[Rfam]
RNA sequence: UGGCGGGGGAGCACCACAAGGGGUGGAGCCUGCGGCUUAAUUGGAGUCAACGCCGGGAACCUUACCGGGGGCGACAGCAGGAUGAAGGUCAGGCUGAAGACCUUACCUGACGCGCUGAGAGGAGGUGCAUGGCCGUCGCCAGCUCGUGCCGUGAGGUGUCCGGUUAAGUCCGGCAACGAGCGAGACCCCCGUCCCCAGUUGCUACCCGGGGCUCCGGCCCCGGGGCACACUGGGGAGACUGCCGCCGUAUAAGGCGGAGGAAGGAGGGGGCUAUGGCAGGUCAGCAUGCCCCGAAACCCCCGGGCUGCACGCGGGCUACAAUGGCGGGGACAGCGGGUUGCGACCCCGAAAGGGGGAGCCAAUCCCUGAAACCCCGCCGAGGUUGGGAUCGAGGGCUGCAACUCGCCCUCGUGAACGCGGAAUCCCUAGUAACCGCGCGUUAGCAUCGCGCGGUGAACACGUCCCUGCUCCUUGCACACACCGCCCGUCGCUCCACCCGAGGGGGGAGAAGUCGUAACAAGGUAGCCGUAGGGGAACCUGCGGCUGGAUCACCUCCC
Numbered sequence: 001u002g003g004c005g006g007g008g009g010a011g012c013a014c015c016a017c018a019a020g021g022g023g024u025g026g027a028g029c030c031u032g033c034g035g036c037u038u039a040a041u042u043g044g045a046g047u048c049a050a051c052g053c054c055g056g057g058a059a060c061c062u063u064a065c066c067g068g069g070g071g072c073g074a075c076a077g078c079a080g081g082a083u084g085a086a087g088g089u090c091a092g093g094c095u096g097a098a099g100a101c102c103u104u105a106c107c108u109g110a111c112g113c114g115c116u117g118a119g120a121g122g123a124g125g126u127g128c129a130u131g132g133c134c135g136u137c138g139c140c141a142g143c144u145c146g147u148g149c150c151g152u153g154a155g156g157u158g159u160c161c162g163g164u165u166a167a168g169u170c171c172g173g174c175a176a177c178g179a180g181c182g183a184g185a186c187c188c189c190c191g192u193c194c195c196c197a198g199u200u201g202c203u204a205c206c207c208g209g210g211g212c213u214c215c216g217g218c219c220c221c222g223g224g225g226c227a228c229a230c231u232g233g234g235g236a237g238a239c240u241g242c243c244g245c246c247g248u249a250u251a252a253g254g255c256g257g258a259g260g261a262a263g264g265a266g267g268g269g270g271c272u273a274u275g276g277c278a279g280g281u282c283a284g285c286a287u288g289c290c291c292c293g294a295a296a297c298c299c300c301c302g303g304g305c306u307g308c309a310c311g312c313g314g315g316c317u318a319c320a321a322u323g324g325c326g327g328g329g330a331c332a333g334c335g336g337g338u339u340g341c342g343a344c345c346c347c348g349a350a351a352g353g354g355g356g357a358g359c360c361a362a363u364c365c366c367u368g369a370a371a372c373c374c375c376g377c378c379g380a381g382g383u384u385g386g387g388a389u390c391g392a393g394g395g396c397u398g399c400a401a402c403u404c405g406c407c408c409u410c411g412u413g414a415a416c417g418c419g420g421a422a423u424c425c426c427u428a429g430u431a432a433c434c435g436c437g438c439g440u441u442a443g444c445a446u447c448g449c450g451c452g453g454u455g456a457a458c459a460c461g462u463c464c465c466u467g468c469u470c471c472u473u474g475c476a477c478a479c480a481c482c483g484c485c486c487g488u489c490g491c492u493c494c495a496c497c498c499g500a501g502g503g504g505g506g507a508g509a510a511g512u513c514g515u516a517a518c519a520a521g522g523u524a525g526c527c528g529u530a531g532g533g534g535a536a537c538c539u540g541c542g543g544c545u546g547g548a549u550c551a552c553c554u555c556c557c
Stems, first nucleotide, its partner, number of pairs: 001478002003475003007472007016462002020426005025319001027317008035308002041056004065303007075117004080111001087107003091103003121292002124290004130286002132281003135277004142181006148157003160173004187269004192236007202225002206223007239260002242257005323378007335366003340359002344355004385416001390411007432454008481521001483518001486514002489511001491508004496503002523546010
Background
The record is a 557-nucleotide part of an RNA from Ignicoccus hospitalis, which matches "Archaeal small subunit ribosomal RNA" in Rfam. Its Rfam clan is "SSU clan". Taxonomically the source falls in Ignicoccus hospitalis (Archaea, Thermoproteota, Thermoprotei, Desulfurococcales). On this family, see Yusupov et al., Science 2001: "Crystal structure of the ribosome at 5.5 A resolution".